[Rfam]
RNA sequence: GAAUCAAGUGAUGAAAUUGGAUUAAAAUUUCUCACGACGGUCGUCUGAGACACUUAAAGUGUCGUCGAUGAUACAAUGAUCCAAUAUUCUGAUGGUU
Numbered sequence: 001g002a003a004u005c006a007a008g009u010g011a012u013g014a015a016a017u018u019g020g021a022u023u024a025a026a027a028u029u030u031c032u033c034a035c036g037a038c039g040g041u042c043g044u045c046u047g048a049g050a051c052a053c054u055u056a057a058a059g060u061g062u063c064g065u066c067g068a069u070g071a072u073a074c075a076a077u078g079a080u081c082c083a084a085u086a087u088u089c090u091g092a093u094g095g096u097u
Stems, first nucleotide, its partner, number of pairs: 001097002004094001051061003
Rfam assigns this 97-nucleotide RNA sequence from Manihot esculenta to the family "Small nucleolar RNA Z161/Z228". NCBI's taxonomy places the organism under Eukaryota, Viridiplantae, Euphyllophyta, Manihoteae, Manihot. A reference for the family is Chen et al. (2003), "The high diversity of snoRNAs in plants: identification and comparative study of 120 snoRNA genes from Oryza sativa", Nucleic Acids Res. The family's RNA type in Rfam is C/D-box small nucleolar RNA. Its family is annotated with RNA processing and nucleolus in the Gene Ontology. A search with the family's covariance model found it, with a score of 80 bits. The base pairs follow the family's consensus structure, which was predicted with PFOLD.